[Rfam]
RNA sequence: ACCAGAUAAAGGCAAAUCUAUUGAAAAGUAGAGGCGCAAAACUACGGAUCUAAGGGCUAAAUGUUUAAUGUCUAUGAUAGCCGGGUUACCUAG
Numbered sequence: 001a002c003c004a005g006a007u008a009a010a011g012g013c014a015a016a017u018c019u020a021u022u023g024a025a026a027a028g029u030a031g032a033g034g035c036g037c038a039a040a041a042c043u044a045c046g047g048a049u050c051u052a053a054g055g056g057c058u059a060a061a062u063g064u065u066u067a068a069u070g071u072c073u074a075u076g077a078u079a080g081c082c083g084g085g086u087u088a089c090c091u092a093g
Stems, first nucleotide, its partner, number of pairs: 012037002017032006040087004045083003048078003055072003
RNA: c-di-GMP-I riboswitch aptamer
Organism: Evansella cellulosilytica